[Rfam]
RNA sequence: GAUGCACCCGGAUGAUGUCUUCACCGGCCGUGUGUCGGCCCCAGGUCGGUGGGACUUUCGUCCGUUUGCAAA
Numbered sequence: 001g002a003u004g005c006a007c008c009c010g011g012a013u014g015a016u017g018u019c020u021u022c023a024c025c026g027g028c029c030g031u032g033u034g035u036c037g038g039c040c041c042c043a044g045g046u047c048g049g050u051g052g053g054a055c056u057u058u059c060g061u062c063c064g065u066u067u068g069c070a071a072a
Stems, first nucleotide, its partner, number of pairs: 003070004009064007017055004022051002025048005
mir-278 microRNA precursor family: a 72-nucleotide RNA sequence from Fopius arisanus. The literature on the family includes a 2007 paper in Genome Res by Ruby et al., "Evolution, biogenesis, expression, and target predictions of a substantially expanded set of Drosophila microRNAs". Gene Ontology terms of the family: miRNA-mediated post-transcriptional gene silencing and RISC complex.